Shown here is a 109-nucleotide RNA sequence from Equus caballus, a member of the family "Small nucleolar RNA SNORD23". Pairs were carried over by alignment from the consensus structure. Rfam classes the family as a C/D-box small nucleolar RNA.
[Rfam]
RNA sequence: UGCUCGAGGAUGACACUCAUCCUUGCUCCCCGUGCCCCCAGGGGCUGUGGGCGACAUCGUGGCUGCCCCGGGCUGGGCCAGUUGGGCUGAUGCCCGGGGACUGAGGGCA
Numbered sequence: 001u002g003c004u005c006g007a008g009g010a011u012g013a014c015a016c017u018c019a020u021c022c023u024u025g026c027u028c029c030c031c032g033u034g035c036c037c038c039c040a041g042g043g044g045c046u047g048u049g050g051g052c053g054a055c056a057u058c059g060u061g062g063c064u065g066c067c068c069c070g071g072g073c074u075g076g077g078c079c080a081g082u083u084g085g086g087c088u089g090a091u092g093c094c095c096g097g098g099g100a101c102u103g104a105g106g107g108c109a
Stems, first nucleotide, its partner, number of pairs: 001109005